[Rfam]
RNA sequence: CAACCCAUACAGUGAUGUGUGGCUGAACGUCCAGAAGUCAGCAGAGGCCAUAGUACCGUGAAGUGGGAUGUCUCUGAAAUAUGGGAGUACGAACGGAGCGGGAAGGGU
Numbered sequence: 001c002a003a004c005c006c007a008u009a010c011a012g013u014g015a016u017g018u019g020u021g022g023c024u025g026a027a028c029g030u031c032c033a034g035a036a037g038u039c040a041g042c043a044g045a046g047g048c049c050a051u052a053g054u055a056c057c058g059u060g061a062a063g064u065g066g067g068a069u070g071u072c073u074c075u076g077a078a079a080u081a082u083g084g085g086a087g088u089a090c091g092a093a094c095g096g097a098g099c100g101g102g103a104a105g106g107g108u
Stems, first nucleotide, its partner, number of pairs: 001025002005022007038045002047108003056101003072098005
RNA: Group II catalytic intron D1-D4-1